Shown here is a 72-nucleotide sequence from Arabis alpina, a member of the family "tRNA". It is annotated as a transfer RNA. Pairs were carried over by alignment from the consensus structure, which is taken from published work.
Nucleotides: 072
Stems, first nucleotide, its partner, number of pairs: 001071007010025004027043005048064005
Number, partner (000 for none) and nucleotide at each position: 001071g002070c003069g004068u005067c006066u007065g008000u009000u010025g011024u012023c013022c014000a015000a016000c017000g018000g019000u020000u021000a022013g023012g024011a025010u026000a027043a028042u029041u030040g031039c032000c033000u034000u035000c036000c037000a038000a039031g040030c041029a042028a043027u044000a045000g046000a047000c048064c049063c050062g051061g052060g053000u054000u055000c056000g057000a058000c059000u060052c061051c062050c063049g064048g065007c066006a067005g068004a069003c070002g071001c072000u